The family of this 99-nucleotide sequence from Nicotiana attenuata is "MIR6152 microRNA precursor family". Pairs were carried over by alignment from the consensus structure, which was predicted with RNAalifold. Gene Ontology terms of the family: miRNA-mediated post-transcriptional gene silencing and RISC complex. Rfam 15.1 lists 5,807 matches to the family in 3 species. NCBI's taxonomy places the organism under Eukaryota, Magnoliopsida, asterids, Solanales, Nicotiana.
RNA sequence: UGGACAGAUUAUUGUAUUCGACUGUAUUCACGCCGUUAAAUAGGGGAUUACACUGUUUUUAAAAUGAAAAGUGAAUCAAUUAACUCCUAAUAUAACUCA
Numbered sequence: 001u002g003g004a005c006a007g008a009u010u011a012u013u014g015u016a017u018u019c020g021a022c023u024g025u026a027u028u029c030a031c032g033c034c035g036u037u038a039a040a041u042a043g044g045g046g047a048u049u050a051c052a053c054u055g056u057u058u059u060u061a062a063a064a065u066g067a068a069a070a071g072u073g074a075a076u077c078a079a080u081u082a083a084c085u086c087c088u089a090a091u092a093u094a095a096c097u098c099a
Base pairs, nucleotide, nucleotide: 002098003097010092011091012090013089014088017083018082020081021080023078024077026076027075028074029073030072031071034066035065036064038058039057040056041055042054043053